Mammalian CPEB3 ribozyme: a 76-nucleotide sequence from Alligator mississippiensis. The base pairs follow the family's consensus structure, which is taken from published work.
Nucleotides: 076
Stems, first nucleotide, its partner, number of pairs: 014043002016040002021075006028038002048065006
Number, partner (000 for none) and nucleotide at each position: 001000g002000u003000u004000g005000c006000a007000c008000g009000u010000a011000c012000a013000a014043g015042g016040u017039c018000a019000u020000a021075g022074c023073a024072g025071a026070a027000g028038c029037g030000c031000u032000c033000g034000c035000a036000g037029u038028g039017g040016a041000g042015c043014c044000c045000u046000g047000u048065c049064a050063g051062a052061u053060u054000c055000c056000a057000a058000a059000a060053a061052a062051u063050c064049u065048g066000c067000a068000a069000a070026u071025u072024c073023u074022g075021c076000c